This 122-nucleotide RNA sequence from Brucella rhizosphaerae belongs to the Rfam family "Alphaproteobacterial ar14". Rfam describes the family as follows. Smr14C2 was renamed NfeR1 (Nodule Formation Efficiency RNA) highly expressed in salt stress and during the symbiotic interaction on legume roots. The family's RNA type in Rfam is small RNA. Rfam 15.1 lists 784 matches to the family in 332 species. The match comes from Rfam's covariance-model search (77 bits). The literature on the family includes a 2012 paper in RNA Biol by del Val et al., "A survey of sRNA families in alpha-proteobacteria". The base pairs follow the family's consensus structure.
RNA sequence: AGAUAUCGCCGGGGCAUCCCUCCUCCCAUUAGCCUCGGUGAUUAUAAAGACCGGAACUCCUCCUCCCAAUCCGGUCUUACCCUAAACGACACCCGUCGCCUCCCCUGCGACGGGUGUUGUUU
Number, nucleotide and partner (000 for none) at each position: 001a000002g000003a000004u000005a042006u041007c040008g000009c038010c037011g036012g035013g034014g033015c032016a000017u000018c000019c000020c000021u000022c000023c000024u000025c000026c000027c000028a000029u000030u000031a000032g015033c014034c013035u012036c011037g010038g009039u000040g007041a006042u005043u000044a000045u000046a000047a078048a077049g076050a075051c074052c073053g072054g071055a070056a000057c000058u000059c000060c000061u000062c000063c000064u000065c000066c000067c000068a000069a000070u055071c054072c053073g052074g051075u050076c049077u048078u047079a000080c000081c000082c000083u000084a000085a000086a000087c000088g000089a117090c116091a115092c114093c113094c112095g111096u110097c109098g108099c107100c000101u000102c000103c000104c000105c000106u000107g099108c098109g097110a096111c095112g094113g093114g092115u091116g090117u089118u000119g000120u000121u000122u000